[Rfam]
RNA: Mammalian CPEB3 ribozyme
Organism: Crocodylus porosus
RNA sequence: GGUUGCAAGUUUGAGGCCACAGCAGAAGUGUUCACGGCAUGGUCCUGUUGGAUUCCAAGAAAUCUGUGAGUUAUGUU
Numbered sequence: 001g002g003u004u005g006c007a008a009g010u011u012u013g014a015g016g017c018c019a020c021a022g023c024a025g026a027a028g029u030g031u032u033c034a035c036g037g038c039a040u041g042g043u044c045c046u047g048u049u050g051g052a053u054u055c056c057a058a059g060a061a062a063u064c065u066g067u068g069a070g071u072u073a074u075g076u077u
Base pairs, nucleotide, nucleotide: 013045015044016043017042018041021077022076023075024074026072027071028040029039030038049066050065051064052063053062054061